[Rfam]
RNA: Small nucleolar RNA SNORA33
Organism: Carlito syrichta
Nucleotides: 124
Stems, first nucleotide, its partner, number of pairs: 003056005016043005067116003078105007086097003
Number, partner (000 for none) and nucleotide at each position: 001000a002000a003056g004055c005054c006053a007052g008000u009000c010000a011000a012000u013000g014000a015000a016043u017042c018041u019040g020039c021000u022000u023000a024000c025000c026000u027000g028000a029000a030000u031000g032000u033000g034000u035000u036000u037000c038000u039020g040019c041018a042017g043016g044000a045000a046000a047000a048000a049000a050000a051000c052007c053006u054005g055004g056003c057000a058000a059000u060000a061000g062000u063000a064000a065000a066000g067116c068115c069114a070000u071000g072000u073000u074000a075000c076000g077000a078105g079104c080103c081102u082101u083100a084099a085000g086097g087096a088095c089000a090000u091000u092000g093000a094000a095088g096087u097086c098000g099084u100083u101082a102081a103080g104079g105078u106000c107000c108000c109000u110000g111000a112000a113000a114069u115068g116067g117000a118000u119000a120000u121000a122000a123000c124000a